[Rfam]
RNA sequence: AUUGAGUGGGAAUAAAAUGUAUAACUAAUUUAACUUGUAAACGUCAAUAAAGUACUAUUUUAUAGUGUGAUACUGAUUACUUUUAAAUGAAUAUGGAUAAUGUUCUUUACCAAAAAACCUACCAAUAAAAAAGGUAGGUUUUUUGGU
Numbered sequence: 001a002u003u004g005a006g007u008g009g010g011a012a013u014a015a016a017a018u019g020u021a022u023a024a025c026u027a028a029u030u031u032a033a034c035u036u037g038u039a040a041a042c043g044u045c046a047a048u049a050a051a052g053u054a055c056u057a058u059u060u061u062a063u064a065g066u067g068u069g070a071u072a073c074u075g076a077u078u079a080c081u082u083u084u085a086a087a088u089g090a091a092u093a094u095g096g097a098u099a100a101u102g103u104u105c106u107u108u109a110c111c112a113a114a115a116a117a118c119c120u121a122c123c124a125a126u127a128a129a130a131a132a133g134g135u136a137g138g139u140u141u142u143u144u145g146g147u
Stems, first nucleotide, its partner, number of pairs: 008107005049083006058075001061072003084097001086094001114143003117139007
Dot-bracket structure: .......(((((....................................((((((...(..(((......)))..)..))))))(.(.......)..).....)))))......((((((((((.........))))))).)))....

The family of this 147-nucleotide RNA from Liquorilactobacillus oeni is "Listeria sRNA rli38". On this family, see Toledo-Arana et al., Nature 2009: "The Listeria transcriptional landscape from saprophytism to virulence". The base pairs follow the family's consensus structure, which was predicted with RNAalifold. By type it is a small RNA. NCBI's taxonomy places the organism under Bacteria, Bacillati, Bacilli, Liquorilactobacillus, Liquorilactobacillus oeni.